This 101-nucleotide RNA belongs to the Rfam family "GP20-a RNA". Rfam's curators put it in the seed alignment. The family's consensus secondary structure is taken from published work.

[Rfam]
RNA sequence: AUAUGUUGAACUACACAACAUUUAAAAGGGUAGUACAAUCAACGCAGAUUGAGAACUGCGGAUUUACAAAUUAAAGCAGAUUUAAAGAUUGUAGGAGGAAG
Numbered sequence: 001a002u003a004u005g006u007u008g009a010a011c012u013a014c015a016c017a018a019c020a021u022u023u024a025a026a027a028g029g030g031u032a033g034u035a036c037a038a039u040c041a042a043c044g045c046a047g048a049u050u051g052a053g054a055a056c057u058g059c060g061g062a063u064u065u066a067c068a069a070a071u072u073a074a075a076g077c078a079g080a081u082u083u084a085a086a087g088a089u090u091g092u093a094g095g096a097g098g099a100a101g
Base pairs, nucleotide, nucleotide: 005019006018007017008016010034011033012032013031014030036091037090038089039088040087043060044059045058046057